A member of the RNA family "c-di-GMP-I riboswitch aptamer" from Anaerospora hongkongensis, 86 nucleotides long.
RNA sequence: AGCAAUAAACUGCAAACUUAUUGAAAAGUAAGGACGCAAAGCUAUGGGUCUAAGUACACUCUGUAUAUGACUGCCAGGUUGCAAUU
Numbered sequence: 001a002g003c004a005a006u007a008a009a010c011u012g013c014a015a016a017c018u019u020a021u022u023g024a025a026a027a028g029u030a031a032g033g034a035c036g037c038a039a040a041g042c043u044a045u046g047g048g049u050c051u052a053a054g055u056a057c058a059c060u061c062u063g064u065a066u067a068u069g070a071c072u073g074c075c076a077g078g079u080u081g082c083a084a085u086u
Stems, first nucleotide, its partner, number of pairs: 012037002017032006040080004045076003048071003055065004

Taxonomically the source falls in Anaerospora (Bacteria, Negativicutes, Selenomonadales, Sporomusaceae).